Overview:
This 64-nucleotide RNA from Monodelphis domestica belongs to the Rfam family "Selenocysteine insertion sequence 1". Lineage of the source: Eukaryota > Vertebrata > Gnathostomata > Metatheria > Monodelphis. Gene Ontology term of the family: selenocysteine incorporation.
RNA sequence: CUUGCAUUAAUGAAGACAGAAGCAUAAACUAUAACUUAGGGGCUUCUGUUGGAUAAUUUGCAAU
Numbered sequence: 001c002u003u004g005c006a007u008u009a010a011u012g013a014a015g016a017c018a019g020a021a022g023c024a025u026a027a028a029c030u031a032u033a034a035c036u037u038a039g040g041g042g043c044u045u046c047u048g049u050u051g052g053a054u055a056a057u058u059u060g061c062a063a064u
Stems, first nucleotide, its partner, number of pairs: 002063004015050009029039003
Background: It is annotated as a cis-regulatory element. It scores 40 bits against the family's covariance model.